The family of this 89-nucleotide RNA sequence from Paenibacillus yonginensis is "BsrC".
Taxonomically the source falls in Paenibacillus (Bacteria, Bacillati, Bacilli, Paenibacillaceae).
On this family, see Saito et al., Gene 2008: "Novel small RNA-encoding genes in the intergenic regions of Bacillus subtilis".
The base pairs follow the family's consensus structure, which was predicted with CMfinder.
It is annotated as a small RNA.

RNA sequence: AACUUCUAAAACAACAAAAGCCCUACCUCUCUUCUGUCCUUGCGGCUCCGAUGACCGCGCCAGUGUGAAUCAGAAACUGCUUAAAUUCA
Numbered sequence: 001a002a003c004u005u006c007u008a009a010a011a012c013a014a015c016a017a018a019a020g021c022c023c024u025a026c027c028u029c030u031c032u033u034c035u036g037u038c039c040u041u042g043c044g045g046c047u048c049c050g051a052u053g054a055c056c057g058c059g060c061c062a063g064u065g066u067g068a069a070u071c072a073g074a075a076a077c078u079g080c081u082u083a084a085a086u087u088c089a
Base pairs, nucleotide, nucleotide: 035067036066039063040062041059042058043057044056045055047053
Dot-bracket structure: ..................................((..(((((((.(.....).)))))..))..))......................